[Rfam]
RNA sequence: ACACACGAAGGGAGGUGGUCCACGACAUGAAGUUCUCUUGGACUUGUGAGGUGGUCGCCGGCUGACUGCCGGUCGAAGACGGUCCGCCAAUCCCAGGCGGCCACCGGGACCCGUGGGUGGUGCGACUCGUCCCCGCACUCGUCGGAACCCUCCGACAGCCCACGGGUCUUUUCCUG
Numbered sequence: 001a002c003a004c005a006c007g008a009a010g011g012g013a014g015g016u017g018g019u020c021c022a023c024g025a026c027a028u029g030a031a032g033u034u035c036u037c038u039u040g041g042a043c044u045u046g047u048g049a050g051g052u053g054g055u056c057g058c059c060g061g062c063u064g065a066c067u068g069c070c071g072g073u074c075g076a077a078g079a080c081g082g083u084c085c086g087c088c089a090a091u092c093c094c095a096g097g098c099g100g101c102c103a104c105c106g107g108g109a110c111c112c113g114u115g116g117g118u119g120g121u122g123c124g125a126c127u128c129g130u131c132c133c134c135g136c137a138c139u140c141g142u143c144g145g146a147a148c149c150c151u152c153c154g155a156c157a158g159c160c161c162a163c164g165g166g167u168c169u170u171u172u173c174c175u176g
Stems, first nucleotide, its partner, number of pairs: 014059006060088003064084003068080001106170013119139006
Dot-bracket structure: .............((((((..................................))))))(((.(((.(...........).))).))).................(((((((((((((((((((.........))))))..................)))))))))))))......
Overview: This 176-nucleotide RNA sequence from Flavimobilis marinus belongs to the Rfam family "Actinobacteria sRNA Ms_IGR-5". By type it is a small RNA. A search with the family's covariance model found it, with a score of 72 bits.